mir-27 microRNA precursor family: a 78-nucleotide RNA from Albula glossodonta.
It scores 64 bits against the family's covariance model.
Its family is annotated with miRNA-mediated post-transcriptional gene silencing and RISC complex in the Gene Ontology.
The literature on the family includes a 2005 paper in Genes Dev by Chen et al., "The developmental miRNA profiles of zebrafish as determined by small RNA cloning".
NCBI's taxonomy places the organism under Eukaryota, Metazoa, Craniata, Teleostomi, Albula.
[Rfam]
RNA sequence: UGUGGCGCCAGGACUUAGCCCACAUGUGAACACUGUAUGUCCUGUCCUUGUUCACAGUGGUUAAGUUCUGCCGCCCCU
Number, nucleotide and partner (000 for none) at each position: 001u000002g000003u000004g000005g000006c000007g000008c000009c000010a000011g068012g067013a066014c065015u064016u063017a062018g061019c060020c059021c000022a000023c000024a000025u000026g055027u054028g053029a052030a051031c050032a049033c000034u000035g000036u000037a000038u000039g000040u000041c000042c000043u000044g000045u000046c000047c000048u000049u032050g031051u030052u029053c028054a027055c026056a000057g000058u000059g020060g019061u018062u017063a016064a015065g014066u013067u012068c011069u000070g000071c000072c000073g000074c000075c000076c000077c000078u000